[Rfam]
RNA sequence: GGGCAAGAGUUGGCCAAGACUUUGGCAAAACUUGAAUUCAGGCUGCACCAAAGUUUAACCCAAGUUUCACCAAACACUUGCCA
Numbered sequence: 001g002g003g004c005a006a007g008a009g010u011u012g013g014c015c016a017a018g019a020c021u022u023u024g025g026c027a028a029a030a031c032u033u034g035a036a037u038u039c040a041g042g043c044u045g046c047a048c049c050a051a052a053g054u055u056u057a058a059c060c061c062a063a064g065u066u067u068c069a070c071c072a073a074a075c076a077c078u079u080g081c082c083a
Stems, first nucleotide, its partner, number of pairs: 002082006009075003013071001017067005024060002028056006
Dot-bracket structure: .((((((.(((.(...(((((..((..((((((.................))))))..))..)))))...).))).)))))).
RNA: mir-266 microRNA precursor family
Organism: Caenorhabditis elegans